[Rfam]
A member of the RNA family "Actino-pnp RNA" from Saccharomonospora piscinae, 58 nucleotides long. The match comes from Rfam's covariance-model search (71 bits). The base pairs follow the family's consensus structure, which is taken from published work. NCBI's taxonomy places the organism under Bacteria, Bacillati, Actinomycetota, Actinomycetes, Saccharomonospora.
RNA sequence: GCCGGUCCUCGGUAGUGGCCGCCGGGUCAAGACCCGUCGGCUUCGAUCGAUGACCGGC
Dot-bracket structure: (((((((.(((((...(((((.(((((....))))).)))))...))))).)))))))
Numbered sequence: 001g002c003c004g005g006u007c008c009u010c011g012g013u014a015g016u017g018g019c020c021g022c023c024g025g026g027u028c029a030a031g032a033c034c035c036g037u038c039g040g041c042u043u044c045g046a047u048c049g050a051u052g053a054c055c056g057g058c
Stems, first nucleotide, its partner, number of pairs: 001058007009050005017042005023036005